[Rfam]
RNA: terC RNA
RNA sequence: GAUGCGGACCGGGCCCCUCUGGCGGCUGCCUCACAAGGCAAUCGUGAUGUCGGACCGCAUCG
Numbered sequence: 001g002a003u004g005c006g007g008a009c010c011g012g013g014c015c016c017c018u019c020u021g022g023c024g025g026c027u028g029c030c031u032c033a034c035a036a037g038g039c040a041a042u043c044g045u046g047a048u049g050u051c052g053g054a055c056c057g058c059a060u061c062g
Stems, first nucleotide, its partner, number of pairs: 006056002009053004022045004027040003